[Rfam]
RNA sequence: UCGGUUCCGGUUCACGCCCCGCAAACCCGCGCGGGCGACCCGGCGCC
Dot-bracket structure: ..(((.((((....((((((((......))).)))))..)))).)))
RNA: L31-Actinobacteria ribosomal protein leader